This 84-nucleotide sequence from Zestomonas carbonaria belongs to the Rfam family "gyrA RNA".
Nucleotides: 084
Stems, first nucleotide, its partner, number of pairs: 007035009017025002036069001038067002041064004046059005
Number, partner (000 for none) and nucleotide at each position: 001000u002000u003000g004000u005000g006000a007035g008034u009033c010032g011031u012030u013029g014028c015027u016000g017025g018024c019000c020000a021000g022000u023000g024018g025017c026000c027015g028014g029013c030012g031011g032010c033009g034008g035007c036069g037000c038067g039066c040000u041064u042063c043062g044061c045000u046059c047058c048057a049056u050055u051000g052000a053000a054000g055050g056049a057048u058047g059046g060000c061044g062043c063042g064041g065000c066039g067038u068000u069036u070000c071000a072000c073000u074000a075000g076000a077000a078000a079000a080000a081000g082000g083000a084000a
Description
Taxonomically the source falls in Zestomonas (Bacteria, Gammaproteobacteria, Pseudomonadales, Pseudomonadaceae).